[Rfam]
RNA sequence: AGAAUAUAAGAACCCGUUUCUUAACUUUAAACUAAAAAUGCUAAGAGCCGGCUCUUAAAUAAGAGAUUUAAGAGCCGGCUCUUAAAUAGGAGAUUUAAGAGCCGGCUCUUAGUUUUUUUUAGUUAAAAGUUAAGAGACAGAUUCUUAUAUUCC
Numbered sequence: 001a002g003a004a005u006a007u008a009a010g011a012a013c014c015c016g017u018u019u020c021u022u023a024a025c026u027u028u029a030a031a032c033u034a035a036a037a038a039u040g041c042u043a044a045g046a047g048c049c050g051g052c053u054c055u056u057a058a059a060u061a062a063g064a065g066a067u068u069u070a071a072g073a074g075c076c077g078g079c080u081c082u083u084a085a086a087u088a089g090g091a092g093a094u095u096u097a098a099g100a101g102c103c104g105g106c107u108c109u110u111a112g113u114u115u116u117u118u119u120u121a122g123u124u125a126a127a128a129g130u131u132a133a134g135a136g137a138c139a140g141a142u143u144c145u146u147a148u149a150u151u152c153c
Base pairs, nucleotide, nucleotide: 002152003151004150005149006148007147008146009145010144011143012142014140016138017137018136019135020134021133022132023131024130025129026128027127028126030124031123032122033121034120035119036118037117038116041112042111043110044109045108046107047106048105049104050103051102052101053100054099055098056097057096058095059094060093
About this RNA: Rfam assigns this 153-nucleotide RNA from Brassica oleracea to the family "MIR9563 microRNA precursor family". The match comes from Rfam's covariance-model search (108 bits). The family has 2 seed sequences and 5,832 matches in Rfam 15.1.